[Rfam]
RNA sequence: AAAGCAGGCUGCAAUUGCAGUGCCUCAUGCUGUGGGAGCACUGCCAUUCCCCUGCUGAGAGCAACUCUGUUAACACUGUCUGUGGUUUCACCCGUGCGGUGGUGAAAACCUUGGUUCUUAACAUGGACAUGA
Numbered sequence: 001a002a003a004g005c006a007g008g009c010u011g012c013a014a015u016u017g018c019a020g021u022g023c024c025u026c027a028u029g030c031u032g033u034g035g036g037a038g039c040a041c042u043g044c045c046a047u048u049c050c051c052c053u054g055c056u057g058a059g060a061g062c063a064a065c066u067c068u069g070u071u072a073a074c075a076c077u078g079u080c081u082g083u084g085g086u087u088u089c090a091c092c093c094g095u096g097c098g099g100u101g102g103u104g105a106a107a108a109c110c111u112u113g114g115u116u117c118u119u120a121a122c123a124u125g126g127a128c129a130u131g132a
Base pairs, nucleotide, nucleotide: 003056004055005054006053007052008051018043019042020041021040022039023038025036026035065126066125068123069122070121071120072119073118075116084109086107087106088105089104090103091102092101
This 132-nucleotide sequence from Acanthisitta chloris belongs to the Rfam family "Small nucleolar RNA SNORA69". About the family: U69 is a member of the H/ACA class of small nucleolar RNAs (snoRNAs) which act as guides in the the modification of uridines to pseudouridines. Rfam links the family to the GO terms nucleolus and RNA processing.